[Rfam]
RNA: MIR2655 microRNA precursor family
RNA sequence: CACUUAUCUUUUAAAAGUUUCAAGUUGGUCCCUUAUCUUUAUUUUAGGUUUCAAGUUGGUCCCUUCCGUCAAUUUUUUAACAAUUUCCGUUAAAUGUGGACACGUGGCAAACUAAUUUGGACACGUGGCACACUUGGACAGUUGACACGUGUCCAAAUUUAACGAUAAUAGUACAAAAUUUGACGGAAGGGACCAACUUGAAACCUAAAAAAAAGAUAAGGGACCAACUUGAAACUUUUAAAAGAUAAGGGA
Numbered sequence: 001c002a003c004u005u006a007u008c009u010u011u012u013a014a015a016a017g018u019u020u021c022a023a024g025u026u027g028g029u030c031c032c033u034u035a036u037c038u039u040u041a042u043u044u045u046a047g048g049u050u051u052c053a054a055g056u057u058g059g060u061c062c063c064u065u066c067c068g069u070c071a072a073u074u075u076u077u078u079a080a081c082a083a084u085u086u087c088c089g090u091u092a093a094a095u096g097u098g099g100a101c102a103c104g105u106g107g108c109a110a111a112c113u114a115a116u117u118u119g120g121a122c123a124c125g126u127g128g129c130a131c132a133c134u135u136g137g138a139c140a141g142u143u144g145a146c147a148c149g150u151g152u153c154c155a156a157a158u159u160u161a162a163c164g165a166u167a168a169u170a171g172u173a174c175a176a177a178a179u180u181u182g183a184c185g186g187a188a189g190g191g192a193c194c195a196a197c198u199u200g201a202a203a204c205c206u207a208a209a210a211a212a213a214a215g216a217u218a219a220g221g222g223a224c225c226a227a228c229u230u231g232a233a234a235c236u237u238u239u240a241a242a243a244g245a246u247a248a249g250g251g252a
Stems, first nucleotide, its partner, number of pairs: 003249006023229003027225003031221010042210002045207003